[Rfam]
RNA sequence: GUCUAUCUUCGGGGCAGGGUGAAAUUCCCGACCGGCGGUGAUGAGGCAAGUUGCUCUAAGCCCGCGAGCCUGUUUUAUUGGGCAGGAUUUGGUGAGAUUCCAAAGCCGACAGUACAGUCUGGAUGGGAGAAGAUGGAG
Numbered sequence: 001g002u003c004u005a006u007c008u009u010c011g012g013g014g015c016a017g018g019g020u021g022a023a024a025u026u027c028c029c030g031a032c033c034g035g036c037g038g039u040g041a042u043g044a045g046g047c048a049a050g051u052u053g054c055u056c057u058a059a060g061c062c063c064g065c066g067a068g069c070c071u072g073u074u075u076u077a078u079u080g081g082g083c084a085g086g087a088u089u090u091g092g093u094g095a096g097a098u099u100c101c102a103a104a105g106c107c108g109a110c111a112g113u114a115c116a117g118u119c120u121g122g123a124u125g126g127g128a129g130a131a132g133a134u135g136g137a138g
Base pairs, nucleotide, nucleotide: 003136004135005134006133007132008131009130010129017029018028019027031118032117033108034107035065036064037063038062060106061105088104089103090102091101092100110121111120112119